[Rfam]
RNA sequence: ACACCGAAAGGAGGUGAUCGGGAAGUGAUUUCUUUCCGGACUCGUGAGGUGGCUGCGGGCUGACUGCCUGCUGUCGCACUCAGUGCGGUGCCGGCGCUGCCGGCCCAAUCCCAAGCAGUCACCGACCCGCGGGCUCGCCGGUAAGUCCGGCCGGCUCCUCCGCAAGGAGGAACCAGAGCCCGCGGGUUUCUGCGU
Number, nucleotide and partner (000 for none) at each position: 001a000002c000003a000004c000005c000006g000007a000008a000009a000010g000011g000012a000013g000014g056015u055016g054017a000018u052019c000020g000021g000022g000023a000024a000025g000026u000027g000028a000029u000030u000031u000032c000033u000034u000035u000036c000037c000038g000039g000040a000041c000042u000043c000044g000045u000046g000047a000048g000049g000050u000051g000052g018053c000054u016055g015056c014057g000058g105059g104060c103061u102062g101063a000064c099065u000066g097067c096068c000069u000070g000071c094072u093073g092074u000075c000076g000077c000078a000079c000080u000081c000082a000083g000084u000085g000086c000087g000088g000089u000090g000091c000092c073093g072094g071095c000096g067097c066098u000099g064100c000101c062102g061103g060104c059105c058106c000107a000108a000109u000110c000111c000112c000113a000114a000115g000116c000117a000118g000119u000120c000121a000122c000123c000124g188125a187126c186127c185128c184129g183130c182131g181132g180133g179134c178135u177136c000137g155138c154139c153140g152141g151142u150143a000144a000145g000146u000147c000148c000149g000150g142151c141152c140153g139154g138155c137156u000157c000158c000159u000160c000161c000162g000163c000164a000165a000166g000167g000168a000169g000170g000171a000172a000173c000174c000175a000176g000177a135178g134179c133180c132181c131182g130183c129184g128185g127186g126187u125188u124189u000190c000191u000192g000193c000194g000195u000